RNA sequence: GGUGGUUCUUGGGUGACGCACCCUGGAAUUGGGCUCCCUCCUCCUCUAGUUCUGGGUUCGUCACCUGAGAACCACA
Numbered sequence: 001g002g003u004g005g006u007u008c009u010u011g012g013g014u015g016a017c018g019c020a021c022c023c024u025g026g027a028a029u030u031g032g033g034c035u036c037c038c039u040c041c042u043c044c045u046c047u048a049g050u051u052c053u054g055g056g057u058u059c060g061u062c063a064c065c066u067g068a069g070a071a072c073c074a075c076a
Base pairs, nucleotide, nucleotide: 002075003074005072006071007070008069009068010067011066012065013064014063015062016061017060020057021056022055023054025053026052027051028050029049030048031047032046033045
Shown here is a 76-nucleotide RNA sequence from Myotis davidii, a member of the family "mir-9223 microRNA precursor family". The family has 9 seed sequences and 14,641 matches in Rfam 15.1. A search with the family's covariance model found it, with a score of 79 bits.